[Rfam]
RNA sequence: GACCCCGGAGGUCACCGCCCGCCGGCGCGUUGCGCUCGCGGGUGCGUUUCGUG
Numbered sequence: 001g002a003c004c005c006c007g008g009a010g011g012u013c014a015c016c017g018c019c020c021g022c023c024g025g026c027g028c029g030u031u032g033c034g035c036u037c038g039c040g041g042g043u044g045c046g047u048u049u050c051g052u053g
Base pairs, nucleotide, nucleotide: 016044017043018042019041020040021039022038025035026034027033028032

Rfam assigns this 53-nucleotide RNA sequence from Oharaeibacter diazotrophicus to the family "ffh sRNA". A search with the family's covariance model found it, with a score of 53 bits. The family's consensus secondary structure is taken from published work. Taxonomically the source falls in Oharaeibacter (Bacteria, Pseudomonadota, Alphaproteobacteria, Hyphomicrobiales). For this family Rfam cites "Identification of candidate structured RNAs in the marine organism 'Candidatus Pelagibacter ubique'" (Meyer et al., BMC Genomics, 2009).